Description:
The family of this 176-nucleotide RNA from Bombilactobacillus mellifer is "Lysine riboswitch aptamer". The source organism's lineage runs through Bacteria, Bacillota, Bacilli, Lactobacillaceae and Bombilactobacillus.
RNA sequence: AUAAAUCGAAGAGGUCGCGACUAACAUGAGUAACUAGUGGAGUUUCUGCAAAACUAAGAAACUAGUGAAAGGGGCAGUCGCCGAAGCGGCCAUGACGCAGAAGUGGUUUACGCUGGGACGUAGUUCAAGAAAUUACGGACUGUCGCAAUUUAUUUUGCGGAGCGCUAUCGACAAAA
Numbered sequence: 001a002u003a004a005a006u007c008g009a010a011g012a013g014g015u016c017g018c019g020a021c022u023a024a025c026a027u028g029a030g031u032a033a034c035u036a037g038u039g040g041a042g043u044u045u046c047u048g049c050a051a052a053a054c055u056a057a058g059a060a061a062c063u064a065g066u067g068a069a070a071g072g073g074g075c076a077g078u079c080g081c082c083g084a085a086g087c088g089g090c091c092a093u094g095a096c097g098c099a100g101a102a103g104u105g106g107u108u109u110a111c112g113c114u115g116g117g118a119c120g121u122a123g124u125u126c127a128a129g130a131a132a133u134u135a136c137g138g139a140c141u142g143u144c145g146c147a148a149u150u151u152a153u154u155u156u157g158c159g160g161a162g163c164g165c166u167a168u169c170g171a172c173a174a175a176a
Stems, first nucleotide, its partner, number of pairs: 006171004010166002017081006025073001033066006085114004092107002095104002115141002119137007143160006